Background
The record is a 422-nucleotide RNA from Pelagimonas varians, which matches "Bacterial RNase P class A" in Rfam. The family's consensus secondary structure is taken from published work. It scores 283 bits against the family's covariance model. About the family: Ribonuclease P (RNase P) is a ubiquitous endoribonuclease, found in archaea, bacteria and eukarya as well as chloroplasts and mitochondria. Its best characterised activity is the generation of mature 5'-ends of tRNAs by cleaving the 5'-leader elements of precursor-tRNAs. Cellular RNase Ps are ribonucleoproteins. Rfam classes the family as a ribozyme. The organism belongs to Pelagimonas, within Bacteria.

RNA sequence: GCGGAAGGCUGGACGGCCGCACCUGCAAGGGUGAGGAAAGUCCGGACUCAGCAAAGCAUCGGUGCCGGGUAACGCCCGGGCAGGGCAACCUGACGGAAAGCGCCACAGAAAACAAACCGCCCGCCAUGCCUGAGGUUCGCCAAGGGAUCACAUGGUGCGGUAAGGGUGAAACGGUGGGGUAAGAGCCCACCGGGGGGCUGGCAACAGUCCCCGCAUGGCAAGCCCCACCAAGGAGCAAUGCCAAAUAGGAACCUCGCGUUCGUCUGAUCCCCUUCGGGGGAUAUCGGGGCAGGGCAGCUUUGGCCUGAGAGGUUCGGGUUGGCAGCAAGAGCCAUGUGGCAACGCAUGGCCCAGAUGAAUGGUCGUCGAUCCUUAGGGCAACCGAAGGGGGACAAAAUCCGGCUUAUAGGCCUUCCGCGCGC
Numbered sequence: 001g002c003g004g005a006a007g008g009c010u011g012g013a014c015g016g017c018c019g020c021a022c023c024u025g026c027a028a029g030g031g032u033g034a035g036g037a038a039a040g041u042c043c044g045g046a047c048u049c050a051g052c053a054a055a056g057c058a059u060c061g062g063u064g065c066c067g068g069g070u071a072a073c074g075c076c077c078g079g080g081c082a083g084g085g086c087a088a089c090c091u092g093a094c095g096g097a098a099a100g101c102g103c104c105a106c107a108g109a110a111a112a113c114a115a116a117c118c119g120c121c122c123g124c125c126a127u128g129c130c131u132g133a134g135g136u137u138c139g140c141c142a143a144g145g146g147a148u149c150a151c152a153u154g155g156u157g158c159g160g161u162a163a164g165g166g167u168g169a170a171a172c173g174g175u176g177g178g179g180u181a182a183g184a185g186c187c188c189a190c191c192g193g194g195g196g197g198c199u200g201g202c203a204a205c206a207g208u209c210c211c212c213g214c215a216u217g218g219c220a221a222g223c224c225c226c227a228c229c230a231a232g233g234a235g236c237a238a239u240g241c242c243a244a245a246u247a248g249g250a251a252c253c254u255c256g257c258g259u260u261c262g263u264c265u266g267a268u269c270c271c272c273u274u275c276g277g278g279g280g281a282u283a284u285c286g287g288g289g290c291a292g293g294g295c296a297g298c299u300u301u302g303g304c305c306u307g308a309g310a311g312g313u314u315c316g317g318g319u320u321g322g323c324a325g326c327a328a329g330a331g332c333c334a335u336g337u338g339g340c341a342a343c344g345c346a347u348g349g350c351c352c353a354g355a356u357g358a359a360u361g362g363u364c365g366u367c368g369a370u371c372c373u374u375a376g377g378g379c380a381a382c383c384g385a386a387g388g389g390g391g392a393c394a395a396a397a398u399c400c401g402g403c404u405u406a407u408a409g410g411c412c413u414u415c416c417g418c419g420c421g422c
Stems, first nucleotide, its partner, number of pairs: 001418010011407001012367007020033005038405003042402005047235003054301003059231001061229004065079005080094001081092004095225002100223002102219003117165002119161003122157006173191006192214001193212008239324004249315006292306004331350008